This 297-nucleotide RNA sequence from Tenacibaculum adriaticum belongs to the Rfam family "Bacterial RNase P class A".
[Rfam]
RNA sequence: UUAGCAGAUCAGUCUUAUCGCCAAAAUUUGGAGGAAAGUCCGGACACCAUAGGGUAGCAUAGCGGAUAACAUCCGUCCGGUGUAAACCGAGGACAAGUGCAACAGAAAGCAAGUACAGUUCGGCUGUAGUGAAACCAGGUAAACUCUAUGCGGUGCAAUACCACGUAUAUUAGAGCUUGAGCGCUACUCGCGCGAUUCUAAGGGGUAGGUAGAUAGACUCUAAAAGUAAUUUUAGAGCGAGAUAAAUGAUAAGAACUUUGUAAGUUACAGAAUCCGGCUUAUUGAUCUGCUUUUUUC
Numbered sequence: 001u002u003a004g005c006a007g008a009u010c011a012g013u014c015u016u017a018u019c020g021c022c023a024a025a026a027u028u029u030g031g032a033g034g035a036a037a038g039u040c041c042g043g044a045c046a047c048c049a050u051a052g053g054g055u056a057g058c059a060u061a062g063c064g065g066a067u068a069a070c071a072u073c074c075g076u077c078c079g080g081u082g083u084a085a086a087c088c089g090a091g092g093a094c095a096a097g098u099g100c101a102a103c104a105g106a107a108a109g110c111a112a113g114u115a116c117a118g119u120u121c122g123g124c125u126g127u128a129g130u131g132a133a134a135c136c137a138g139g140u141a142a143a144c145u146c147u148a149u150g151c152g153g154u155g156c157a158a159u160a161c162c163a164c165g166u167a168u169a170u171u172a173g174a175g176c177u178u179g180a181g182c183g184c185u186a187c188u189c190g191c192g193c194g195a196u197u198c199u200a201a202g203g204g205g206u207a208g209g210u211a212g213a214u215a216g217a218c219u220c221u222a223a224a225a226g227u228a229a230u231u232u233u234a235g236a237g238c239g240a241g242a243u244a245a246a247u248g249a250u251a252a253g254a255a256c257u258u259u260g261u262a263a264g265u266u267a268c269a270g271a272a273u274c275c276g277g278c279u280u281a282u283u284g285a286u287c288u289g290c291u292u293u294u295u296u297c
Stems, first nucleotide, its partner, number of pairs: 003291008011282001013254007021031004036280003040277005045155004052189004057151005062076005077091001078089004092146002097144002099140002114128006159211004170201005181193004218237008
Source information
NCBI's taxonomy places the organism under Bacteria, Flavobacteriia, Flavobacteriales, Flavobacteriaceae, Tenacibaculum. The base pairs follow the family's consensus structure, which is taken from published work.